The record is a 132-nucleotide sequence from Otolemur garnettii, which matches "Small nucleolar RNA SNORA33" in Rfam.
[Rfam]
RNA sequence: CAUCUUGUUUUGAUCAGGGUAAUUUGAAACUUUCUUUUAAGACUUCCUGACUCUAAAGCAAGCAAUAGUAAAGCCAUGUUACGAGCCUUACGGACAUUGAAGUUGUUAAGGUCCCUGAAAAUGGCUAUAACA
Numbered sequence: 001c002a003u004c005u006u007g008u009u010u011u012g013a014u015c016a017g018g019g020u021a022a023u024u025u026g027a028a029a030c031u032u033u034c035u036u037u038u039a040a041g042a043c044u045u046c047c048u049g050a051c052u053c054u055a056a057a058g059c060a061a062g063c064a065a066u067a068g069u070a071a072a073g074c075c076a077u078g079u080u081a082c083g084a085g086c087c088u089u090a091c092g093g094a095c096a097u098u099g100a101a102g103u104u105g106u107u108a109a110g111g112u113c114c115c116u117g118a119a120a121a122u123g124g125c126u127a128u129a130a131c132a
Stems, first nucleotide, its partner, number of pairs: 004062004015049005073125004085112006093104003
It is annotated as an H/ACA-box small nucleolar RNA. The match comes from Rfam's covariance-model search (80 bits). From the family's description: ACA33 is a member of the H/ACA class of snoRNA that guide the sites of modification of uridines to pseudouridines.